A member of the RNA family "7SK RNA" from Otus sunia, 408 nucleotides long.
Pairs were carried over by alignment from the consensus structure, which is taken from published work.
RNA sequence: AGAUGUGAGGGUGAUCUGGCUGCUACAUCUGUCACCCCAUUGAUCGCCAGGGUUAAUUCGGCUGAUCUGGCUGGCUAGGCAGGUGUGCCCUUCCUCCCUCACCACUCCAUGUGCGUCCCUCCCGAAGCUGUGCGCUCGGUCGAAGAGGAUGACCUUCCCCGAUAUUCCGGAUGACAAGACUAUUGCAUUGUCGUUGUUCCCAUGGAGUCAGAGCCCUGCUAGCACUGACUGAACAUGGGUGUGCUAGUCUGUUGGGACAGACUGGGAUUCAGGCUGCUCCUCAAAAAAAACUUUAGAUAUUUAGAAGGGACAGAAUAAACUCAGGAGGUUUUUAAGAAGAAAGGUAGUUUUUUUAACUAUUUAACAGAAACAUGUAUUUUUAUCUUUCCAAGGACACAGAUAUGUUUU
Numbered sequence: 001a002g003a004u005g006u007g008a009g010g011g012u013g014a015u016c017u018g019g020c021u022g023c024u025a026c027a028u029c030u031g032u033c034a035c036c037c038c039a040u041u042g043a044u045c046g047c048c049a050g051g052g053u054u055a056a057u058u059c060g061g062c063u064g065a066u067c068u069g070g071c072u073g074g075c076u077a078g079g080c081a082g083g084u085g086u087g088c089c090c091u092u093c094c095u096c097c098c099u100c101a102c103c104a105c106u107c108c109a110u111g112u113g114c115g116u117c118c119c120u121c122c123c124g125a126a127g128c129u130g131u132g133c134g135c136u137c138g139g140u141c142g143a144a145g146a147g148g149a150u151g152a153c154c155u156u157c158c159c160c161g162a163u164a165u166u167c168c169g170g171a172u173g174a175c176a177a178g179a180c181u182a183u184u185g186c187a188u189u190g191u192c193g194u195u196g197u198u199c200c201c202a203u204g205g206a207g208u209c210a211g212a213g214c215c216c217u218g219c220u221a222g223c224a225c226u227g228a229c230u231g232a233a234c235a236u237g238g239g240u241g242u243g244c245u246a247g248u249c250u251g252u253u254g255g256g257a258c259a260g261a262c263u264g265g266g267a268u269u270c271a272g273g274c275u276g277c278u279c280c281u282c283a284a285a286a287a288a289a290a291c292u293u294u295a296g297a298u299a300u301u302u303a304g305a306a307g308g309g310a311c312a313g314a315a316u317a318a319a320c321u322c323a324g325g326a327g328g329u330u331u332u333u334a335a336g337a338a339g340a341a342a343g344g345u346a347g348u349u350u351u352u353u354u355a356a357c358u359a360u361u362u363a364a365c366a367g368a369a370a371c372a373u374g375u376a377u378u379u380u381u382a383u384c385u386u387u388c389c390a391a392g393g394a395c396a397c398a399g400a401u402a403u404g405u406u407u408u
Base pairs, nucleotide, nucleotide: 002107003106005102006101007100008099009098010097011096013093014092018090019089024087025086026085027084028083029082030081031080032079033078035074036073037070038069039068042067043066044065045064046062047061048060116174117173118170119169122139123138124137125136127135128134140162141161142160147158148157149156205353206352207351214344215343217341219339226335376408381402382401383400384399385396387394388393
The source organism's lineage runs through Eukaryota, Eumetazoa, Craniata, Telluraves and Otus.